[Rfam]
RNA sequence: AGUUCGCUGUGAUGACUCUUACAAGAACGGUAUCUGAGUAAGGUGGCUUUAAAAUAUUCUCCCCUUCCUUGAUUAUAUCCAAAACUGAAAUAUUCUGAGCAAGCA
Numbered sequence: 001a002g003u004u005c006g007c008u009g010u011g012a013u014g015a016c017u018c019u020u021a022c023a024a025g026a027a028c029g030g031u032a033u034c035u036g037a038g039u040a041a042g043g044u045g046g047c048u049u050u051a052a053a054a055u056a057u058u059c060u061c062c063c064c065u066u067c068c069u070u071g072a073u074u075a076u077a078u079c080c081a082a083a084a085c086u087g088a089a090a091u092a093u094u095c096u097g098a099g100c101a102a103g104c105a
Stems, first nucleotide, its partner, number of pairs: 002104003006100002038068001040066004

A member of the RNA family "Small nucleolar RNA Z118/Z121/Z120" from Oryza meyeriana, 105 nucleotides long. A reference for the family is Chen et al. (2003), "The high diversity of snoRNAs in plants: identification and comparative study of 120 snoRNA genes from Oryza sativa", Nucleic Acids Res. The family's RNA type in Rfam is C/D-box small nucleolar RNA. Taxonomically the source falls in Oryza meyeriana (Eukaryota, Viridiplantae, Streptophytina, Oryzinae). It scores 80 bits against the family's covariance model. Gene Ontology terms of the family: RNA processing and nucleolus. Rfam 15.1 lists 435 matches to the family in 31 species.